This 97-nucleotide sequence from Centaurea solstitialis belongs to the Rfam family "Small nucleolar RNA snoR31/Z110/Z27".
From the family's description: This family contains several related snoRNAs including R31, Z27 and Z110.
Pairs were carried over by alignment from the consensus structure, which was predicted with PFOLD.
Rfam classes the family as a C/D-box small nucleolar RNA.
The match comes from Rfam's covariance-model search (64 bits).
The literature on the family includes a 2001 paper in J Mol Biol by Barneche et al., "Identification of 66 box C/D snoRNAs in Arabidopsis thaliana: extensive gene duplications generated multiple isoforms predicting new ribosomal RNA 2'-O-methylation sites".
[Rfam]
Nucleotides: 097
Base pairs, nucleotide, nucleotide: 001097002096003095004094005092006091041047042046
Number, partner (000 for none) and nucleotide at each position: 001097a002096u003095g004094a005092a006091a007000u008000a009000u010000g011000a012000u013000g014000a015000a016000a017000u018000c019000a020000g021000a022000a023000a024000a025000a026000u027000c028000u029000u030000a031000g032000g033000a034000c035000a036000c037000c038000u039000u040000c041047u042046g043000a044000c045000a046042c047041a048000g049000u050000u051000u052000g053000a054000c055000a056000a057000u058000g059000c060000u061000g062000u063000g064000u065000a066000u067000g068000a069000g070000a071000a072000a073000a074000g075000c076000a077000u078000u079000u080000u081000u082000u083000g084000u085000u086000u087000c088000u089000g090000a091006u092005u093000u094004u095003c096002a097001u